[Rfam]
RNA sequence: CUCUUAAGGUUAAUUGGUUAGCCUUUGUGAGCGUGAAAGCGCUUGCAAGUCGCUCUGUCCUUACGGUUUGGGGCAGUUGUUUGGCAACACCAUCGAAUUGCGGGAACAUCCUUACAGCUUGCACUACCAAGUCAAUGCAGAAAUGCAUCGAUGGCCAGGUUAAUAGCCUCGGGUAUGGUAAAAAUGUGCAAGAUUGGACAAUCCGCAGCCAAGCUCCUAUCGGUGAUCGAUGUUUAGCACCAAUGGAGAAGGUUCAACGACUAUGUGGUGGUGGGCGGUGGACAACCGCUUAAGAUAUAGUCUGGCCCUGCCGAGAGGCAGCC
Numbered sequence: 001c002u003c004u005u006a007a008g009g010u011u012a013a014u015u016g017g018u019u020a021g022c023c024u025u026u027g028u029g030a031g032c033g034u035g036a037a038a039g040c041g042c043u044u045g046c047a048a049g050u051c052g053c054u055c056u057g058u059c060c061u062u063a064c065g066g067u068u069u070g071g072g073g074c075a076g077u078u079g080u081u082u083g084g085c086a087a088c089a090c091c092a093u094c095g096a097a098u099u100g101c102g103g104g105a106a107c108a109u110c111c112u113u114a115c116a117g118c119u120u121g122c123a124c125u126a127c128c129a130a131g132u133c134a135a136u137g138c139a140g141a142a143a144u145g146c147a148u149c150g151a152u153g154g155c156c157a158g159g160u161u162a163a164u165a166g167c168c169u170c171g172g173g174u175a176u177g178g179u180a181a182a183a184a185u186g187u188g189c190a191a192g193a194u195u196g197g198a199c200a201a202u203c204c205g206c207a208g209c210c211a212a213g214c215u216c217c218u219a220u221c222g223g224u225g226a227u228c229g230a231u232g233u234u235u236a237g238c239a240c241c242a243a244u245g246g247a248g249a250a251g252g253u254u255c256a257a258c259g260a261c262u263a264u265g266u267g268g269u270g271g272u273g274g275g276c277g278g279u280g281g282a283c284a285a286c287c288g289c290u291u292a293a294g295a296u297a298u299a300g301u302c303u304g305g306c307c308c309u310g311c312c313g314a315g316a317g318g319c320a321g322c323c
Base pairs, nucleotide, nucleotide: 006025007024008023009022010021011020012019013018031040032039088273089272090271091270092269094267095266099207100206101205102204103203104202109198110197111196208253209252214248215247216246217245222241223240224239225238257303259302260301261300262299263298275289276288277287278286279285308321309320310319311318312317
This 323-nucleotide sequence from Monoraphidium neglectum belongs to the Rfam family "Group I catalytic intron". Group I catalytic introns are large self-splicing ribozymes. Pairs were carried over by alignment from the consensus structure, which is taken from published work.